[Rfam]
RNA: MIR1886 microRNA precursor family
RNA sequence: UGACAUGAAAUCAGUGUUUGGAUAUAUGAUUUCACAUUGAUUUCAACUCAUG
Dot-bracket structure: (((..(((((((((((((((......)))....))))))))))))..)))..
Numbered sequence: 001u002g003a004c005a006u007g008a009a010a011u012c013a014g015u016g017u018u019u020g021g022a023u024a025u026a027u028g029a030u031u032u033c034a035c036a037u038u039g040a041u042u043u044c045a046a047c048u049c050a051u052g
Stems, first nucleotide, its partner, number of pairs: 001050003006045012018029003